[Rfam]
RNA sequence: GGAUGAAAUGACGAUUGUGAUAUUGUUUCCCUAUUGGUUUGAUAGCCGUAAUGAUGGCAUCUUAGUAUUAGCUCUAUCUGAUCAUUC
Numbered sequence: 001g002g003a004u005g006a007a008a009u010g011a012c013g014a015u016u017g018u019g020a021u022a023u024u025g026u027u028u029c030c031c032u033a034u035u036g037g038u039u040u041g042a043u044a045g046c047c048g049u050a051a052u053g054a055u056g057g058c059a060u061c062u063u064a065g066u067a068u069u070a071g072c073u074c075u076a077u078c079u080g081a082u083c084a085u086u087c
Base pairs, nucleotide, nucleotide: 002086003085004084005083041061045058046057047056

This 87-nucleotide RNA from Theobroma umbraticum belongs to the Rfam family "Small nucleolar RNA Z102/R77". The family has 9 seed sequences and 1,346 matches in Rfam 15.1. The base pairs follow the family's consensus structure, which was predicted with PFOLD. Lineage of the source: Eukaryota > Magnoliopsida > Pentapetalae > rosids > Theobroma.